[Rfam]
RNA sequence: AUCUUAUUAAGAGUGGUGGAGGGACUGGCCCUAUGAAACCCAGCAACCUAUUUAUGAUUUAAUUAAAUGUGGUGCUAAAUCCGGCAGUUAUUCUGAAAGAUAAGAG
Numbered sequence: 001a002u003c004u005u006a007u008u009a010a011g012a013g014u015g016g017u018g019g020a021g022g023g024a025c026u027g028g029c030c031c032u033a034u035g036a037a038a039c040c041c042a043g044c045a046a047c048c049u050a051u052u053u054a055u056g057a058u059u060u061a062a063u064u065a066a067a068u069g070u071g072g073u074g075c076u077a078a079a080u081c082c083g084g085c086a087g088u089u090a091u092u093c094u095g096a097a098a099g100a101u102a103a104g105a106g
Stems, first nucleotide, its partner, number of pairs: 002105007013041001015040003021031003025084004042076004047072002051066002080098001085095003
Rfam assigns this 106-nucleotide RNA sequence from Clostridium sartagoforme to the family "SAM riboswitch aptamer (S box leader)". Taxonomically the source falls in Clostridium (Bacteria, Bacillota, Clostridia, Clostridiaceae). Rfam links the family to the GO term regulation of gene expression. A search with the family's covariance model found it, with a score of 82 bits.